[Rfam]
RNA: mir-590 microRNA precursor family
RNA sequence: AGCCAGUCAGAAAUGAGCUUCUUCAUAAAAAUACAGUCUGAUCCAGUAACCCUGUAAUUUGACGUAUGAGCUGGUCUCUGACUGAA
Numbered sequence: 001a002g003c004c005a006g007u008c009a010g011a012a013a014u015g016a017g018c019u020u021c022u023u024c025a026u027a028a029a030a031a032u033a034c035a036g037u038c039u040g041a042u043c044c045a046g047u048a049a050c051c052c053u054g055u056a057a058u059u060u061g062a063c064g065u066a067u068g069a070g071c072u073g074g075u076c077u078c079u080g081a082c083u084g085a086a
Stems, first nucleotide, its partner, number of pairs: 004084008013075002016072005022066001024064001026062001028060003032056005
Dot-bracket structure: ...((((((((.((.(((((.(.(.(.(((.(((((...............))))).))).).).).))))).)).))))))))..